[Rfam]
RNA sequence: UUUGCAAGUUUGAGGCUAUUACAGAAGCACUCACAGUGUGGCCCUGUUAGAUUCUAGUGAAUCUGUGAAUUUUGCU
Numbered sequence: 001u002u003u004g005c006a007a008g009u010u011u012g013a014g015g016c017u018a019u020u021a022c023a024g025a026a027g028c029a030c031u032c033a034c035a036g037u038g039u040g041g042c043c044c045u046g047u048u049a050g051a052u053u054c055u056a057g058u059g060a061a062u063c064u065g066u067g068a069a070u071u072u073u074g075c076u
Stems, first nucleotide, its partner, number of pairs: 012044001014043004022074005027039003048065007
This 76-nucleotide RNA from Crocodylus porosus belongs to the Rfam family "Mammalian CPEB3 ribozyme".
It scores 50 bits against the family's covariance model.
Rfam's curators write: The mammalian CPEB3 ribozyme is a self cleaving RNA located in the second intron of the CPEB3 gene which belongs to a family of genes regulating messenger RNA polyadenylation.